The record is a 71-nucleotide RNA sequence from Psilopogon haemacephalus, which matches "mir-219 microRNA precursor family" in Rfam. Rfam links the family to the GO terms miRNA-mediated post-transcriptional gene silencing and RISC complex. A search with the family's covariance model found it, with a score of 66 bits.

RNA sequence: CCGGCUCCUGAUUGUCCAAACGCAAUUCUUGUGAGGGCGGCCGAGAGUUGGGUGUGGACGUCGUGAGCCGA
Number, nucleotide and partner (000 for none) at each position: 001c000002c070003g069004g068005c067006u066007c065008c000009u063010g062011a061012u060013u000014g059015u058016c057017c056018a055019a000020a000021c052022g000023c050024a049025a048026u047027u046028c045029u044030u043031g042032u000033g000034a000035g000036g000037g000038c000039g000040g000041c000042c031043g030044a029045g028046a027047g026048u025049u024050g023051g000052g021053u000054g000055u018056g017057g016058a015059c014060g012061u011062c010063g009064u000065g007066a006067g005068c004069c003070g002071a000